RNA sequence: UUCUUAUCAAGAGAGAUGGAGGGAAUAGGCCCAGUGAAGUCCAGCAACCUAUAAUUAGAUAGGUGCUAAAUCCUACUUAUGUUUUCAUAAGAAAGAUAAGAG
Numbered sequence: 001u002u003c004u005u006a007u008c009a010a011g012a013g014a015g016a017u018g019g020a021g022g023g024a025a026u027a028g029g030c031c032c033a034g035u036g037a038a039g040u041c042c043a044g045c046a047a048c049c050u051a052u053a054a055u056u057a058g059a060u061a062g063g064u065g066c067u068a069a070a071u072c073c074u075a076c077u078u079a080u081g082u083u084u085u086c087a088u089a090a091g092a093a094a095g096a097u098a099a100g101a102g
Stems, first nucleotide, its partner, number of pairs: 001102008013042001015041003021032003026075004043067004048063002050059001052057001071094001076091006
This 102-nucleotide RNA from Intestinibacter bartlettii belongs to the Rfam family "SAM riboswitch aptamer (S box leader)". The family's consensus secondary structure is taken from published work. The SAM riboswitch is found upstream of a number of genes which code for proteins involved in methionine or cysteine biosynthesis in Gram-positive bacteria. It scores 85 bits against the family's covariance model.